Record summary
The family of this 88-nucleotide RNA from Pachycephala philippinensis is "Small nucleolar RNA SNORD103/SNORD85". On this family, see Huttenhofer et al., EMBO J 2001: "RNomics: an experimental approach that identifies 201 candidates for novel, small, non-messenger RNAs in mouse". The base pairs follow the family's consensus structure. Lineage of the source: Eukaryota > Bilateria > Deuterostomia > Teleostomi > Pachycephala.
[Rfam]
RNA sequence: UCUGGCAGUGAUGCCACCCUUGCCCUCACUGAGAACUCUGUUCGGUAAUGAGCCUCUCUCUCCGUGCGCUCGGAGCAGCUGAGCCAGA
Dot-bracket structure: ((((((............................................................................))))))